[Rfam]
RNA sequence: UGAGAUGAAAUCAGCGUUUAAAUAUGUGAUUUCAUGUUGAUUUCAUCUCAUU
Numbered sequence: 001u002g003a004g005a006u007g008a009a010a011u012c013a014g015c016g017u018u019u020a021a022a023u024a025u026g027u028g029a030u031u032u033c034a035u036g037u038u039g040a041u042u043u044c045a046u047c048u049c050a051u052u
Base pairs, nucleotide, nucleotide: 001050002049003048004047005046006045007044008043009042010041011040012039013038014037015036016035017034018029019028020027
RNA: MIR1886 microRNA precursor family